[Rfam]
RNA sequence: AUCUAUCUUCAGGGCAGGAUGAAAUUUCCUACCGGUGGUACAGCCCACGAGCCGCAAGGCAUGAUUUGGUGAAAUUCCAAAGCCGACAGUUACAGUCUGGAUGAGAGAAGAUAAAA
Numbered sequence: 001a002u003c004u005a006u007c008u009u010c011a012g013g014g015c016a017g018g019a020u021g022a023a024a025u026u027u028c029c030u031a032c033c034g035g036u037g038g039u040a041c042a043g044c045c046c047a048c049g050a051g052c053c054g055c056a057a058g059g060c061a062u063g064a065u066u067u068g069g070u071g072a073a074a075u076u077c078c079a080a081a082g083c084c085g086a087c088a089g090u091u092a093c094a095g096u097c098u099g100g101a102u103g104a105g106a107g108a109a110g111a112u113a114a115a116a
Stems, first nucleotide, its partner, number of pairs: 004113007017029003031096002033085002035048004043083002053059001065081005087099003

Shown here is a 116-nucleotide RNA sequence from [Eubacterium] brachy, a member of the family "FMN riboswitch aptamer (RFN element)". The match comes from Rfam's covariance-model search (113 bits). Rfam links the family to the GO term FMN binding.